[Rfam]
RNA sequence: AUCCGCUAGGCGGGGCUCUGGCUGGGUCGCUCGGCUUUAGAGCGUGCGGACCCGGCCGAUCCCGCGAGGCGAGGUCGGAUGGUGGUGGUGGCCGUGGUGGUGCGGCGUGCGGGUCAUCGCGGCGGCCUAUAGCCCAGCCGCCGGGGCUUGUCAUCCCACGGGACAACCCUCGCUGAAAUAA
Numbered sequence: 001a002u003c004c005g006c007u008a009g010g011c012g013g014g015g016c017u018c019u020g021g022c023u024g025g026g027u028c029g030c031u032c033g034g035c036u037u038u039a040g041a042g043c044g045u046g047c048g049g050a051c052c053c054g055g056c057c058g059a060u061c062c063c064g065c066g067a068g069g070c071g072a073g074g075u076c077g078g079a080u081g082g083u084g085g086u087g088g089u090g091g092c093c094g095u096g097g098u099g100g101u102g103c104g105g106c107g108u109g110c111g112g113g114u115c116a117u118c119g120c121g122g123c124g125g126c127c128u129a130u131a132g133c134c135c136a137g138c139c140g141c142c143g144g145g146g147c148u149u150g151u152c153a154u155c156c157c158a159c160g161g162g163a164c165a166a167c168c169c170u171c172g173c174u175g176a177a178a179u180a181a
Stems, first nucleotide, its partner, number of pairs: 002014005015168001017166001020057008028048003032044002060163004065150002070145001074139001076137001078135001082130004087126001089125001091123004097117005103111002
Dot-bracket structure: .(((((...)))))(.(..(((((((((((.((.........)).))).))))))))..((((.((...(...(.(.(...((((.(.(.((((..(((((.((.....)).)))))..)))).))))))....).).).....)...)).........))))..).).............
caulobacter sRNA CC3513: a 181-nucleotide RNA sequence from Caulobacter radicis. A search with the family's covariance model found it, with a score of 106 bits. It is annotated as a small RNA.